RNA: Small nucleolar RNA Z155
Organism: Lathyrus oleraceus
RNA sequence: CAUUGAGUUGAUGAUAUACUGAUCCGAAUUUAUAAUGACGAUGGUAAAAUUUCAGACUACAAUUAUCUGAUCAAUG
Numbered sequence: 001c002a003u004u005g006a007g008u009u010g011a012u013g014a015u016a017u018a019c020u021g022a023u024c025c026g027a028a029u030u031u032a033u034a035a036u037g038a039c040g041a042u043g044g045u046a047a048a049a050u051u052u053c054a055g056a057c058u059a060c061a062a063u064u065a066u067c068u069g070a071u072c073a074a075u076g
Stems, first nucleotide, its partner, number of pairs: 001076006
Dot-bracket structure: ((((((................................................................))))))